[Rfam]
A member of the RNA family "Bacterial RNase P class A" from Micrococcus sp. HMSC067E09, 387 nucleotides long. Ribonuclease P (RNase P) is a ubiquitous endoribonuclease, found in archaea, bacteria and eukarya as well as chloroplasts and mitochondria. The organism belongs to Micrococcus, within Bacteria. A search with the family's covariance model found it, with a score of 277 bits.
RNA sequence: ACGGACCGGUGGACGGCCGCGGCCCGCACCGUCCACGGUGCGGGGUGAGGAACGUCCGGGCACCACAGGGCUGGAUGGUGGGCAACACCCACUCGGGGCGACCCGCAGGCCAGUGCCACAGAGAGAAGACCGCCUCCGCUGCUCGCAGCGGGGGUAAGGGUGAAAGGGUGGUGUAAGAGACCACCAGCGGCCCCGGUGACGGGGCCGGCUCGGUAAACCCCAUCCGGUGCAAGGCCGAACAGGACGCGUCACGAGGGCUGCCCGCCCCAGCGUCCGGGUUGGCCGCUCGAGCCCGUCGGCGACGGCGGGCCUAGACAGAUGGCCGUCGCUGCGUUCCAGGGCAACCGACGCGCAGAACAGAACCCGGCGUACAGCCGGUCCGUCCCC
Numbered sequence: 001a002c003g004g005a006c007c008g009g010u011g012g013a014c015g016g017c018c019g020c021g022g023c024c025c026g027c028a029c030c031g032u033c034c035a036c037g038g039u040g041c042g043g044g045g046u047g048a049g050g051a052a053c054g055u056c057c058g059g060g061c062a063c064c065a066c067a068g069g070g071c072u073g074g075a076u077g078g079u080g081g082g083c084a085a086c087a088c089c090c091a092c093u094c095g096g097g098g099c100g101a102c103c104c105g106c107a108g109g110c111c112a113g114u115g116c117c118a119c120a121g122a123g124a125g126a127a128g129a130c131c132g133c134c135u136c137c138g139c140u141g142c143u144c145g146c147a148g149c150g151g152g153g154g155u156a157a158g159g160g161u162g163a164a165a166g167g168g169u170g171g172u173g174u175a176a177g178a179g180a181c182c183a184c185c186a187g188c189g190g191c192c193c194c195g196g197u198g199a200c201g202g203g204g205c206c207g208g209c210u211c212g213g214u215a216a217a218c219c220c221c222a223u224c225c226g227g228u229g230c231a232a233g234g235c236c237g238a239a240c241a242g243g244a245c246g247c248g249u250c251a252c253g254a255g256g257g258c259u260g261c262c263c264g265c266c267c268c269a270g271c272g273u274c275c276g277g278g279u280u281g282g283c284c285g286c287u288c289g290a291g292c293c294c295g296u297c298g299g300c301g302a303c304g305g306c307g308g309g310c311c312u313a314g315a316c317a318g319a320u321g322g323c324c325g326u327c328g329c330u331g332c333g334u335u336c337c338a339g340g341g342c343a344a345c346c347g348a349c350g351c352g353c354a355g356a357a358c359a360g361a362a363c364c365c366g367g368c369g370u371a372c373a374g375c376c377g378g379u380c381c382g383u384c385c386c387c
Stems, first nucleotide, its partner, number of pairs: 001383010011372001012327007020047002023044008052370003056367005061229004068263004073225005078092005093107001094105004108220002113218002115214003130159002132155009167185006187209001188207008233284004242275006255267004291310008